[Rfam]
RNA sequence: GAAACACCCAUAUGGGACAAGAUUUGCUUCAGUGGGGCUUUGGCACUCACUAAGUCUGCCCCCUGAGUAUGUCUCU
Numbered sequence: 001g002a003a004a005c006a007c008c009c010a011u012a013u014g015g016g017a018c019a020a021g022a023u024u025u026g027c028u029u030c031a032g033u034g035g036g037g038c039u040u041u042g043g044c045a046c047u048c049a050c051u052a053a054g055u056c057u058g059c060c061c062c063c064u065g066a067g068u069a070u071g072u073c074u075c076u
Stems, first nucleotide, its partner, number of pairs: 001075002004072003009067001011065002014062003018058002021056003029053001031051006037044002

Shown here is a 76-nucleotide RNA sequence from Pipistrellus kuhlii, a member of the family "mir-9229 microRNA precursor family". The match comes from Rfam's covariance-model search (72 bits). Lineage of the source: Eukaryota > Tetrapoda > Mammalia > Boreoeutheria > Pipistrellus. Its family is annotated with RISC complex and miRNA-mediated post-transcriptional gene silencing in the Gene Ontology.